Annotation: Small nucleolar RNA SNORA72: a 132-nucleotide RNA from Camelus dromedarius. The base pairs follow the family's consensus structure, which was predicted with PFOLD. NCBI's taxonomy places the organism under Eukaryota, Deuterostomia, Tetrapoda, Boreoeutheria, Camelus. Rfam describes the family as follows. U72 is a member of the H/ACA class of snoRNAs. The snoRNA gene is located in intron 4 of the ribosomal L30 protein gene in human, mouse and chicken. Gene Ontology terms of the family: RNA processing and nucleolus. The match comes from Rfam's covariance-model search (116 bits).

RNA sequence: UUGCAAAUAUUCUCACUAUCGUGAUUCUGUAAUAAUCAGGGAGGGCCAAACGUUCACUAUAUUAAGACCAUGCAUGUGUCCCCAGACCUAGUUCUUUUCCUUGGUCUGUUUUCAUAAACGCUGGGGAUAAAC
Numbered sequence: 001u002u003g004c005a006a007a008u009a010u011u012c013u014c015a016c017u018a019u020c021g022u023g024a025u026u027c028u029g030u031a032a033u034a035a036u037c038a039g040g041g042a043g044g045g046c047c048a049a050a051c052g053u054u055c056a057c058u059a060u061a062u063u064a065a066g067a068c069c070a071u072g073c074a075u076g077u078g079u080c081c082c083c084a085g086a087c088c089u090a091g092u093u094c095u096u097u098u099c100c101u102u103g104g105u106c107u108g109u110u111u112u113c114a115u116a117a118a119c120g121c122u123g124g125g126g127a128u129a130a131a132c
Base pairs, nucleotide, nucleotide: 003057016044017043019041020040022038023037024036025035026034068124069123070122072121073120083108084107085106086105087104088103090101091100